[Rfam]
RNA sequence: UUCCCUACGGAUGCUCAGGUCCGCCGCAUCUCCUGGGUCCCGUGGGGUUCGGCCGGCACGGAAGCGGUUACGUGGCCUCCUCGAAUCCGCUUCCGGCCGGCCACCUG
Numbered sequence: 001u002u003c004c005c006u007a008c009g010g011a012u013g014c015u016c017a018g019g020u021c022c023g024c025c026g027c028a029u030c031u032c033c034u035g036g037g038u039c040c041c042g043u044g045g046g047g048u049u050c051g052g053c054c055g056g057c058a059c060g061g062a063a064g065c066g067g068u069u070a071c072g073u074g075g076c077c078u079c080c081u082c083g084a085a086u087c088c089g090c091u092u093c094c095g096g097c098c099g100g101c102c103a104c105c106u107g
Stems, first nucleotide, its partner, number of pairs: 003047008014037006051102007060094002